[Rfam]
RNA: U5 spliceosomal RNA
RNA sequence: AGCCAUGUGUUAAGCACAAAGUGAACUAUAUUUUCCUCUUUUAUUAAAGAAUACCAUGUGAUUGCCAUAUUUAGUGGUAUAUGCCUAGUUUUGGAGAGUCUCCUCUUUGGUAGAGGACU
Numbered sequence: 001a002g003c004c005a006u007g008u009g010u011u012a013a014g015c016a017c018a019a020a021g022u023g024a025a026c027u028a029u030a031u032u033u034u035c036c037u038c039u040u041u042u043a044u045u046a047a048a049g050a051a052u053a054c055c056a057u058g059u060g061a062u063u064g065c066c067a068u069a070u071u072u073a074g075u076g077g078u079a080u081a082u083g084c085c086u087a088g089u090u091u092u093g094g095a096g097a098g099u100c101u102c103c104u105c106u107u108u109g110g111u112a113g114a115g116g117a118c119u
Base pairs, nucleotide, nucleotide: 003077004076005075006074008067009066011064012063013062015060016059017058018057027053028052029051031049032048033047034046095119101117102116103115104114105113